[Rfam]
RNA sequence: GAAUCGAAUAGAGGAGCGACUACAAAAUAGUAAUUUCUUUCUUAAAGACUUUGAAAGAAAUGAAAGGUAAGAGUCGCCGAAACCUUCUUAGUACUAUUAGUCGAAUAGGAAAAGUUGAGUUGGGACGCAUGAGAAUAUCUUGCGUACUCGGCGGAUAGAAAGUAUCCGAUUGGCACUAUUGAUACG
Numbered sequence: 001g002a003a004u005c006g007a008a009u010a011g012a013g014g015a016g017c018g019a020c021u022a023c024a025a026a027a028u029a030g031u032a033a034u035u036u037c038u039u040u041c042u043u044a045a046a047g048a049c050u051u052u053g054a055a056a057g058a059a060a061u062g063a064a065a066g067g068u069a070a071g072a073g074u075c076g077c078c079g080a081a082a083c084c085u086u087c088u089u090a091g092u093a094c095u096a097u098u099a100g101u102c103g104a105a106u107a108g109g110a111a112a113a114g115u116u117g118a119g120u121u122g123g124g125a126c127g128c129a130u131g132a133g134a135a136u137a138u139c140u141u142g143c144g145u146a147c148u149c150g151g152c153g154g155a156u157a158g159a160a161a162g163u164a165u166c167c168g169a170u171u172g173g174c175a176c177u178a179u180u181g182a183u184a185c186g
Base pairs, nucleotide, nucleotide: 007180008179009178010177011176016077017076018075019074020073021072024068033061034060035059036058037057038056039055081121082120083119084117085113122148123147125145126144127143128142129141131139132138151171152168153167154166155165
RNA: Lysine riboswitch aptamer